[Rfam]
Rfam assigns this 226-nucleotide RNA sequence from Alkalibaculum bacchi to the family "T-box leader".
A reference for the family is Gerdeman et al. (2003), "Solution structure of the Bacillus subtilis T-box antiterminator RNA: seven nucleotide bulge characterized by stacking and flexibility", J Mol Biol.
Rfam classes the family as a cis-regulatory leader.
The family's consensus secondary structure is taken from published work.
RNA sequence: UAUAAACCUUUGAGAAAGAGGAGUAGGCUUUAGUUAACAUUAUAGAGAGUCGCGAUUUGGUGGAAUGCGAUAUGAAGACCUUAGUUGAAUGGACUUUUGAGGGCAACCCGAACUAAUAGUAGGCGUUGACGGAAACCACAACCGUUAAUCAUGUGGCAUAUAUGUUAGUAUAUGAUAAAGUGGACUUAGUCAAAUUGAGUGGUACCGCGGGUAAAUCGUCUCAAGU
Dot-bracket structure: ......((......((((.......((((........(((........((((((...........)))))))))........)))).......))))...)).((((((............)).)))).(((.........)))......................................(((...)))....((((.......((((.....))))))))...
Numbered sequence: 001u002a003u004a005a006a007c008c009u010u011u012g013a014g015a016a017a018g019a020g021g022a023g024u025a026g027g028c029u030u031u032a033g034u035u036a037a038c039a040u041u042a043u044a045g046a047g048a049g050u051c052g053c054g055a056u057u058u059g060g061u062g063g064a065a066u067g068c069g070a071u072a073u074g075a076a077g078a079c080c081u082u083a084g085u086u087g088a089a090u091g092g093a094c095u096u097u098u099g100a101g102g103g104c105a106a107c108c109c110g111a112a113c114u115a116a117u118a119g120u121a122g123g124c125g126u127u128g129a130c131g132g133a134a135a136c137c138a139c140a141a142c143c144g145u146u147a148a149u150c151a152u153g154u155g156g157c158a159u160a161u162a163u164g165u166u167a168g169u170a171u172a173u174g175a176u177a178a179a180g181u182g183g184a185c186u187u188a189g190u191c192a193a194a195u196u197g198a199g200u201g202g203u204a205c206c207g208c209g210g211g212u213a214a215a216u217c218g219u220c221u222c223a224a225g226u
Stems, first nucleotide, its partner, number of pairs: 007102002015097004026086004038074003049071006104128004108123002130144003183191003196223004207219004